[Rfam]
RNA sequence: CCCGCCGAAACUGACCCCAGCCAGGUCUCGGGUUGGGAUCCCUAUGGUGUAGAGAUACGGAUUCUGUACGGGUUUCCGUACGGAGUCCAACUCCGAAGCCAUAGGGUCCGUAGCCCGGGAAACGGGGAUUGCGGGAAAGCCGCAAUUCCGAGACGGGAACAACCGAGACCGAGGUUAAGGCCCCAAAGUGCUGGCUGAACGAUUUUGAAGGAGUCUGUCCCCUAAGACAUCGGGGAUGUGGGCCUAAUAGUGGCUAUCAUCUAAGGAGUGUGUAACAACUCACCCGACGAGGGGAUAGGCUCCGAAAACGGACGGGUCUAAGCCAGCCGCCGAGACCUCGGUCCGCUGGCAUUGCCAGCGUGAGGUAGGCGGGCGUCCCGAUGGCCUAGAAGGGUUCCUGAAAGGGAGCCUGGAGCCGUCGGGAAUGAAGAU
Number, nucleotide and partner (000 for none) at each position: 001c373002c372003c371004g370005c369006c368007g000008a000009a000010a000011c024012u023013g022014a000015c020016c000017c000018c000019a000020g015021c000022c013023a012024g011025g000026u121027c119028u118029c117030g116031g115032g114033u000034u000035g000036g109037g108038a107039u000040c106041c105042c104043u103044a102045u101046g100047g099048u000049g000050u000051a000052g094053a092054g091055a000056u000057a000058c000059g000060g087061a086062u085063u084064c083065u000066g081067u080068a079069c078070g077071g076072g000073u000074u000075u000076c071077c070078g069079u068080a067081c066082g000083g064084a063085g062086u061087c060088c000089a000090a000091c054092u053093c000094c052095g000096a000097a000098g000099c047100c046101a045102u044103a043104g042105g041106g040107u038108c037109c036110g000111u000112a000113g000114c032115c031116c030117g029118g028119g027120a000121a026122a000123c000124g000125g149126g148127g147128a146129u145130u144131g143132c142133g141134g000135g000136a000137a000138a000139g000140c000141c133142g132143c131144a130145a129146u128147u127148c126149c125150g000151a000152g000153a000154c165155g164156g163157g000158a000159a000160c000161a000162a000163c156164c155165g154166a000167g000168a000169c341170c340171g339172a338173g337174g336175u335176u000177a000178a000179g331180g330181c329182c000183c000184c000185a000186a000187a000188g328189u000190g327191c326192u325193g324194g323195c322196u000197g000198a000199a000200c000201g000202a000203u000204u000205u000206u000207g000208a000209a000210g303211g302212a301213g300214u299215c298216u297217g296218u295219c294220c293221c292222c291223u000224a000225a000226g000227a000228c000229a000230u287231c286232g285233g284234g283235g000236a260237u259238g258239u000240g000241g255242g254243c253244c000245u000246a000247a000248u000249a000250g000251u000252g000253g243254c242255u241256a000257u000258c238259a237260u236261c265262u000263a000264a000265g261266g281267a000268g000269u000270g279271u278272g000273u000274a000275a000276c000277a000278a271279c270280u000281c266282a000283c234284c233285c232286g231287a230288c000289g000290a000291g222292g221293g220294g219295a218296u217297a216298g215299g214300c213301u212302c211303c210304g000305a000306a000307a000308a000309c000310g000311g000312a000313c000314g000315g000316g000317u000318c000319u000320a000321a000322g195323c194324c193325a192326g191327c190328c188329g181330c180331c179332g000333a000334g000335a175336c174337c173338u172339c171340g170341g169342u363343c362344c360345g359346c358347u357348g356349g000350c000351a000352u000353u000354g000355c000356c348357a347358g346359c345360g344361u000362g343363a342364g000365g000366u000367a000368g006369g005370c004371g003372g002373g001374c427375g000376u424377c423378c422379c421380g420381a419382u418383g417384g416385c415386c000387u000388a000389g000390a000391a000392g411393g410394g409395u408396u407397c406398c405399u404400g000401a000402a000403a000404g399405g398406g397407a396408g395409c394410c393411u392412g000413g000414a000415g385416c384417c383418g382419u381420c380421g379422g378423g377424a376425a000426u000427g374428a000429a000430g000431a000432u000
Notes:
Rfam assigns this 432-nucleotide part of an RNA from Candidatus Nanobsidianus stetteri to the family "Archaeal large subunit ribosomal RNA". Pairs were carried over by alignment from the consensus structure, which is taken from published work. Taxonomically the source falls in Candidatus Nanobsidianus (Archaea, Candidatus Nanoarchaeia, Nanoarchaeales, Nanopusillaceae).